[Rfam]
RNA sequence: GACCCUGGUCAGCUUUGCAGGGUGGGCAGUCAGCCUGUUUGCUUUCUGAGCAGCUGUGCAAACCCAUGCAAAACUGAUCAUGGUU
Numbered sequence: 001g002a003c004c005c006u007g008g009u010c011a012g013c014u015u016u017g018c019a020g021g022g023u024g025g026g027c028a029g030u031c032a033g034c035c036u037g038u039u040u041g042c043u044u045u046c047u048g049a050g051c052a053g054c055u056g057u058g059c060a061a062a063c064c065c066a067u068g069c070a071a072a073a074c075u076g077a078u079c080a081u082g083g084u085u
Stems, first nucleotide, its partner, number of pairs: 003083002006080007014072006020065002023061001026059003032055003